[Rfam]
RNA sequence: GAAUGAUUUACGGGGCAAAUCUUCUUUGGCAAAAAAUGACCAAACUUGCACUAAAUAAUAUAGUGAAGAUGUGGCUAUUUGCCAAAGAAGAUUAGCCCAGUAAUGCAUCC
Numbered sequence: 001g002a003a004u005g006a007u008u009u010a011c012g013g014g015g016c017a018a019a020u021c022u023u024c025u026u027u028g029g030c031a032a033a034a035a036a037u038g039a040c041c042a043a044a045c046u047u048g049c050a051c052u053a054a055a056u057a058a059u060a061u062a063g064u065g066a067a068g069a070u071g072u073g074g075c076u077a078u079u080u081g082c083c084a085a086a087g088a089a090g091a092u093u094a095g096c097c098c099a100g101u102a103a104u105g106c107a108u109c110c
Stems, first nucleotide, its partner, number of pairs: 005106001008103002011100001013098004017093002021090004027084007035076001
Description: The record is a 110-nucleotide RNA sequence from Solanum tuberosum, which matches "mir-399 microRNA precursor family" in Rfam. The organism belongs to Solanum, within Eukaryota. About the family: mir-399 was identified in both Arabidopsis thaliana and Oryza sativa computationally and was later experimentally verified. mir-399 is thought to target mRNAs coding for a phosphatase transporter. The mature sequence is excised from the 3' arm of the hairpin.